[Rfam]
RNA: skipping-rope RNA
Nucleotides: 096
Base pairs, nucleotide, nucleotide: 001096002095003094004093005092006091007090008089011033012032013031014030015029023082024081025080026079035063036044037043038042068088069087070086071085072084
Number, partner (000 for none) and nucleotide at each position: 001096g002095c003094u004093g005092u006091u007090u008089g009000a010000g011033g012032u013031g014030g015029u016000a017000a018000a019000u020000u021000u022000c023082g024081u025080g026079g027000a028000g029015g030014c031013c032012a033011c034000g035063c036044g037043c038042u039000g040000a041000c042038g043037g044036u045000a046000u047000g048000a049000c050000a051000g052000g053000g054000g055000a056000a057000a058000c059000c060000c061000g062000a063035g064000a065000g066000a067000u068088g069087c070086a071085g072084g073000a074000g075000a076000a077000c078000g079026c080025c081024a082023c083000g084072c085071c086070u087069g088068c089008c090007g091006g092005a093004c094003a095002g096001u